[Rfam]
RNA sequence: AUUCCGGUUGAUCCUGCCGGAGGUCAUUGCUAGUGGAGUCCGAUUUAGCCAUGCUAGUUGCACGAGUUUAGACUCGUAGCAGAUAGCUCAGUAACACGUGGCCAAACUACCCUCUGGAUCGGGAUAACCUCGGGAAACUGAGGCUAAUCCUGAAUAGCGUUCUCACCCUGGAGUGGGGAGAACGUGAAAUGCUCCGGCGCCAGAGGAUGUGGCUGCGGCCGAUUAGGUAGACGGUGGGGUAACGGCCCACCGUGCCAGUAAUCGGUACGGGUUGUGAGAGCAAGAGCCCGGAGACGGUAUCUGAGACAAGAUACCGGGCCCUACGGGGCGCAGCAGGCGCGAAACCUUUACACUGCACGCCAGUGCGAUAAGGGGACUCCAUCUGCGAGGGCAUAUCGUCCUCGCUUUUCUGUACCGUAAGGUGGUACAGGAAUAAGGGCUGGGCAAGACCGGUGCCAGCCGCCGCGGUAAUACCGGCAGCCCGAGUGAUGACCGCUAUUAUUG
Numbered sequence: 001a002u003u004c005c006g007g008u009u010g011a012u013c014c015u016g017c018c019g020g021a022g023g024u025c026a027u028u029g030c031u032a033g034u035g036g037a038g039u040c041c042g043a044u045u046u047a048g049c050c051a052u053g054c055u056a057g058u059u060g061c062a063c064g065a066g067u068u069u070a071g072a073c074u075c076g077u078a079g080c081a082g083a084u085a086g087c088u089c090a091g092u093a094a095c096a097c098g099u100g101g102c103c104a105a106a107c108u109a110c111c112c113u114c115u116g117g118a119u120c121g122g123g124a125u126a127a128c129c130u131c132g133g134g135a136a137a138c139u140g141a142g143g144c145u146a147a148u149c150c151u152g153a154a155u156a157g158c159g160u161u162c163u164c165a166c167c168c169u170g171g172a173g174u175g176g177g178g179a180g181a182a183c184g185u186g187a188a189a190u191g192c193u194c195c196g197g198c199g200c201c202a203g204a205g206g207a208u209g210u211g212g213c214u215g216c217g218g219c220c221g222a223u224u225a226g227g228u229a230g231a232c233g234g235u236g237g238g239g240u241a242a243c244g245g246c247c248c249a250c251c252g253u254g255c256c257a258g259u260a261a262u263c264g265g266u267a268c269g270g271g272u273u274g275u276g277a278g279a280g281c282a283a284g285a286g287c288c289c290g291g292a293g294a295c296g297g298u299a300u301c302u303g304a305g306a307c308a309a310g311a312u313a314c315c316g317g318g319c320c321c322u323a324c325g326g327g328g329c330g331c332a333g334c335a336g337g338c339g340c341g342a343a344a345c346c347u348u349u350a351c352a353c354u355g356c357a358c359g360c361c362a363g364u365g366c367g368a369u370a371a372g373g374g375g376a377c378u379c380c381a382u383c384u385g386c387g388a389g390g391g392c393a394u395a396u397c398g399u400c401c402u403c404g405c406u407u408u409u410c411u412g413u414a415c416c417g418u419a420a421g422g423u424g425g426u427a428c429a430g431g432a433a434u435a436a437g438g439g440c441u442g443g444g445c446a447a448g449a450c451c452g453g454u455g456c457c458a459g460c461c462g463c464c465g466c467g468g469u470a471a472u473a474c475c476g477g478c479a480g481c482c483c484g485a486g487u488g489a490u491g492a493c494c495g496c497u498a499u500u501a502u503u504g
Base pairs, nucleotide, nucleotide: 004020005019006018007017008016022494023493024492025491026490027489028488029487030486031485033382034381035380036379037378038377039376040375041374042340048338049337050336052335053334054333057080058079059078062077063076064075065074066073067072087293088292089291097217098216099215100214101213102212103211106210107209111206112205113204114203115202116201117200119153120152121151122150128143129142130141131140132139133138158184159183160182161181162180163179164178167176168175191198192197219265220264221263226256227255228254231253232252233251234250235249236248237247238246268290269289270288271287272283273282274281275280295316296315297314298313299312300311318329319328320327321326346372348371349370350369354367355366356365357364358363385405386404387403388402389401390400391399392398410430411429412428413427414426415425416424437483438482439481440480441479442478450477451476452475453474459466460465